[Rfam]
RNA sequence: AGAGGUCACAAAUUUGGGGCCAUAACAGAAGCACACAGAAACAUAUGGCCAUGUCAGAUUCCAAUGAAUCUGUGAAUUCUGAU
Numbered sequence: 001a002g003a004g005g006u007c008a009c010a011a012a013u014u015u016g017g018g019g020c021c022a023u024a025a026c027a028g029a030a031g032c033a034c035a036c037a038g039a040a041a042c043a044u045a046u047g048g049c050c051a052u053g054u055c056a057g058a059u060u061c062c063a064a065u066g067a068a069u070c071u072g073u074g075a076a077u078u079c080u081g082a083u
Base pairs, nucleotide, nucleotide: 013051018050019049020048021047024083026081027080028079029078030077031046055072056071057070058069059068060067061066
Rfam assigns this 83-nucleotide RNA from Crocodylus porosus to the family "Mammalian CPEB3 ribozyme". Pairs were carried over by alignment from the consensus structure, which is taken from published work.